[Rfam]
This 78-nucleotide RNA from Hansschlegelia beijingensis belongs to the Rfam family "Makes More Granules Regulator RNA (mmgR)". The pairing is the family consensus, mapped onto this sequence. About the family: SuhB later renamed mmgR (makes more granules regulator) was a putative non-coding RNA found multiple times in the Agrobacterium tumefaciens genome and related alpha-proteobacteria. Other non-coding RNAs uncovered in the same analysis include: speF, ybhL, metA, and serC.Several studies inSinorhizobium meliloti showed that suhB element is indeed a non-coding RNA:firstly it was detected on Northern blot and called Sm8RNA, secondly in an RNAseq study referred to as SmelC689.The mutant phenotype's (strain lacking the small RNA) cytoplasm contains higher content of polyhydroxybutyrate (PBH)storage granules than wild type strain. The sRNA is required to limit the PBH intracellular accumulation when the nitrogen-fixing Sinorhizobium meliloti is under condition of surplus carbon in relation to nitrogen. It has been renamed to mmgR. Further study confirmed that mmgR fine-tunes the regulation of PBH storage.Northern blot confirmed the expression of the sRNA in other rhizobia species.
RNA sequence: CGCCGCUGCCCUCCUUGGGCGUUUCCUCCCUAGACUUGGCCGCUCGCUUUACUGCGGGCGGCCUUUUUUUUAGGUCAU
Number, nucleotide and partner (000 for none) at each position: 001c000002g000003c000004c000005g000006c000007u000008g020009c019010c018011c017012u000013c000014c000015u000016u000017g011018g010019g009020c008021g000022u000023u000024u000025c000026c000027u000028c000029c000030c000031u000032a000033g000034a000035c000036u000037u000038g063039g062040c061041c060042g059043c058044u057045c056046g055047c000048u000049u000050u000051a000052c000053u000054g000055c046056g045057g044058g043059c042060g041061g040062c039063c038064u000065u000066u000067u000068u000069u000070u000071u000072a000073g000074g000075u000076c000077a000078u000